The family of this 344-nucleotide RNA from Treponema vincentii is "Bacterial RNase P class A". Gene Ontology terms of the family: ribonuclease P activity, dimeric ribonuclease P complex and tRNA processing. Lineage of the source: Bacteria > Spirochaetota > Spirochaetia > Treponemataceae > Treponema vincentii.
RNA sequence: AUAGAGAGCCGGUAACCGCCGUGUAUACGGAGGAAAGUCCGGACUCCUUCGGAGAUGAUGCCGGCUAACGGCCGGGCGCUUGUGUUGUAAAAUGCAGGCGACAGACAGCGCAACAGAAAAUAAACCGCCGGUAAAACGGUAAGGGUGAAAAGGCGGGGUAAGAGCCCACCGCGCUUCCGGUAACGGGGCGGCAGUGCAAGCCUCAUCAGGAGCAAAAUUGAAUAGUAAAGGAUAUCCGAUCCUCUAUUUACGGGUUGAUUGCGGAAAUUUCUGCAGCAAUGCAGCAAUAAGAUAGAUGGUUACCCUGUUCGCAGACAGAAUCCGGCUUACGGCUCUCUAUUUUU
Dot-bracket structure: (((((((((((((((((.((((....))))....[[[.[[[[[((((....[.[.((((((((((.....)))))(((((((((((....)))))))))).)((...(((((............((((((......))))..)).......((.(((.......))).))((((.((((....))))))).)..)))..)))))))))))))...((((.....(((((((((.].].)))))....)))).....)))).......((.(((((....))))).))..........)))))))................]]]]]]]]..))))))))))....